[Rfam]
This 87-nucleotide RNA from Orchesella cincta belongs to the Rfam family "Selenocysteine transfer RNA".
The family's consensus secondary structure is taken from published work.
The family is grouped with related families in Rfam's "tRNA clan".
RNA sequence: GCCCAGAUGAGCCUUGGUGGUUCCGGGGUGCAGGCUUCAAACCUGUAGGUGAUGCGAGUCACAGAGGUUCGAUUCCUCCUUCUGGGC
Numbered sequence: 001g002c003c004c005a006g007a008u009g010a011g012c013c014u015u016g017g018u019g020g021u022u023c024c025g026g027g028g029u030g031c032a033g034g035c036u037u038c039a040a041a042c043c044u045g046u047a048g049g050u051g052a053u054g055c056g057a058g059u060c061a062c063a064g065a066g067g068u069u070c071g072a073u074u075c076c077u078c079c080u081u082c083u084g085g086g087c
Stems, first nucleotide, its partner, number of pairs: 001087007009079001012028006029047006049062005064078004